RNA sequence: CGUUCCCGGAGGGAGCAAGGCUUGGGGACGGGUUGUCGUGUGUGUUGCUACGGUGCUGCGUGGAUGGCGCGUGUGGGCUGAGUGAGUGGAGGCACGAAUGUGUGAGUGUGCGCAUGAGGCGUGCAAGACGAGUGUGAGCGCCCUUCCCUGAGCCCCUCCCCCCGCCUACACCUUGAUCUUAUUUGAUCGGGUUGUGACCGUAGCCCCGCCGGGCCGACCCGAGAUGAAAAGCUCCCCUCCUGCGAAGCCCCCUCCUCGGGGCUAUGUGCAGCGAGGCCCCUUGGGCGGCGGCAACGCCGCGGUCCCGGAGCUGGUCUUAACGGGGCCCGGCGCUCAGAAGUGAUGAAUUGAUCAGAUAGACGAGGCCGGGCUUGUCUCGGGCCGCUGAUUAUCGAGGCGAUUCUGAUCUGA
Numbered sequence: 001c002g003u004u005c006c007c008g009g010a011g012g013g014a015g016c017a018a019g020g021c022u023u024g025g026g027g028a029c030g031g032g033u034u035g036u037c038g039u040g041u042g043u044g045u046u047g048c049u050a051c052g053g054u055g056c057u058g059c060g061u062g063g064a065u066g067g068c069g070c071g072u073g074u075g076g077g078c079u080g081a082g083u084g085a086g087u088g089g090a091g092g093c094a095c096g097a098a099u100g101u102g103u104g105a106g107u108g109u110g111c112g113c114a115u116g117a118g119g120c121g122u123g124c125a126a127g128a129c130g131a132g133u134g135u136g137a138g139c140g141c142c143c144u145u146c147c148c149u150g151a152g153c154c155c156c157u158c159c160c161c162c163c164g165c166c167u168a169c170a171c172c173u174u175g176a177u178c179u180u181a182u183u184u185g186a187u188c189g190g191g192u193u194g195u196g197a198c199c200g201u202a203g204c205c206c207c208g209c210c211g212g213g214c215c216g217a218c219c220c221g222a223g224a225u226g227a228a229a230a231g232c233u234c235c236c237c238u239c240c241u242g243c244g245a246a247g248c249c250c251c252c253u254c255c256u257c258g259g260g261g262c263u264a265u266g267u268g269c270a271g272c273g274a275g276g277c278c279c280c281u282u283g284g285g286c287g288g289c290g291g292c293a294a295c296g297c298c299g300c301g302g303u304c305c306c307g308g309a310g311c312u313g314g315u316c317u318u319a320a321c322g323g324g325g326c327c328c329g330g331c332g333c334u335c336a337g338a339a340g341u342g343a344u345g346a347a348u349u350g351a352u353c354a355g356a357u358a359g360a361c362g363a364g365g366c367c368g369g370g371c372u373u374g375u376c377u378c379g380g381g382c383c384g385c386u387g388a389u390u391a392u393c394g395a396g397g398c399g400a401u402u403c404u405g406a407u408c409u410g411a
Stems, first nucleotide, its partner, number of pairs: 052154003056150001057073006090103001092101003106141003109136005115130002182230003187222004192217003196214001199213001201211001203209002256309002259306003265301001268300002271297003276292003279288002310331005315325003335410004345403006364383004369378002

The family of this 411-nucleotide RNA sequence from Gulo gulo is "Small Cajal body-specific RNA 2". Lineage of the source: Eukaryota > Eumetazoa > Vertebrata > Musteloidea > Gulo. Rfam 15.1 lists 612 matches to the family in 498 species.